[Rfam]
RNA sequence: GUCGUGAGGCAGUGUGGUUAGCUGGUUGCAUACACAGGUUGACAACGGCUACCUUCACUGCCACCCCGA
Numbered sequence: 001g002u003c004g005u006g007a008g009g010c011a012g013u014g015u016g017g018u019u020a021g022c023u024g025g026u027u028g029c030a031u032a033c034a035c036a037g038g039u040u041g042a043c044a045a046c047g048g049c050u051a052c053c054u055u056c057a058c059u060g061c062c063a064c065c066c067c068g069a
Stems, first nucleotide, its partner, number of pairs: 002069003006065001008062002011059004016054002019051003023047001025046004
Shown here is a 69-nucleotide sequence from Caenorhabditis briggsae, a member of the family "mir-34 microRNA precursor family". Rfam describes the family as follows. Human mir-34a was discovered computationally and later experimentally verified. The mature sequence is excised from the 5' arm of the hairpin. The sequence is in the family's curated seed alignment.